[Rfam]
This 109-nucleotide RNA sequence belongs to the Rfam family "6S-Flavo RNA". By type it is a small RNA. The base pairs follow the family's consensus structure, which is taken from published work.
RNA sequence: ACUCAACGAGCUUUAAUUUAAGAGAGGUGAGUUAUGACUGUAAAAGCAUGCUGCCUUGAGCAGAUCCUUGAUCAGUUGUGUAGCCUCAUACCUGUUUAUUUAGGAGUUU
Numbered sequence: 001a002c003u004c005a006a007c008g009a010g011c012u013u014u015a016a017u018u019u020a021a022g023a024g025a026g027g028u029g030a031g032u033u034a035u036g037a038c039u040g041u042a043a044a045a046g047c048a049u050g051c052u053g054c055c056u057u058g059a060g061c062a063g064a065u066c067c068u069u070g071a072u073c074a075g076u077u078g079u080g081u082a083g084c085c086u087c088a089u090a091c092c093u094g095u096u097u098a099u100u101u102a103g104g105a106g107u108u109u
Stems, first nucleotide, its partner, number of pairs: 024087005035078005044069003051063004